[Rfam]
RNA sequence: GGGUCCGGCAGGCCGCGUACCUCCCCCAAGGACUGUGGGGAAAGAGCCAACCACCCUCCCCCACCGGCCCGUUCACCCUCAGGAGUGACCCGGUUGCGGCGAGUACGGACGGAGGGUUACGUUCCCCGCACACCACAACUUCAGACAGACAACGGCCCCCGGCCGGGACUGGCAUCCCGAUCGAGGGCCUGACCAACCAGGAAGAAAGCACCUUCCCG
Numbered sequence: 001g002g003g004u005c006c007g008g009c010a011g012g013c014c015g016c017g018u019a020c021c022u023c024c025c026c027c028a029a030g031g032a033c034u035g036u037g038g039g040g041a042a043a044g045a046g047c048c049a050a051c052c053a054c055c056c057u058c059c060c061c062c063a064c065c066g067g068c069c070c071g072u073u074c075a076c077c078c079u080c081a082g083g084a085g086u087g088a089c090c091c092g093g094u095u096g097c098g099g100c101g102a103g104u105a106c107g108g109a110c111g112g113a114g115g116g117u118u119a120c121g122u123u124c125c126c127c128g129c130a131c132a133c134c135a136c137a138a139c140u141u142c143a144g145a146c147a148g149a150c151a152a153c154g155g156c157c158c159c160c161g162g163c164c165g166g167g168a169c170u171g172g173c174a175u176c177c178c179g180a181u182c183g184a185g186g187g188c189c190u191g192a193c194c195a196a197c198c199a200g201g202a203a204g205a206a207a208g209c210a211c212c213u214u215c216c217c218g
Base pairs, nucleotide, nucleotide: 002197004195011069012068013067014066073088074087075086076085078083098127099126101124102123154189155188156187157186158185160183161182165178166177167176168175200216201215202214203213204212

The family of this 218-nucleotide sequence from Streptomyces lincolnensis is "Streptomyces sRNA 4677". A reference for the family is Hindra et al. (2014), "Complex intra-operonic dynamics mediated by a small RNA in Streptomyces coelicolor", PLoS One. Rfam's curators write: Located in the intergenic region between anti-sigma factor SCO4677 gene and a putative regulatory protein gene SCO4676. scr4677 expression requires the SCO4677 activity and scr4677 sRNA itself seem to affect the levels of the SCO4676-associated transcripts. The base pairs follow the family's consensus structure.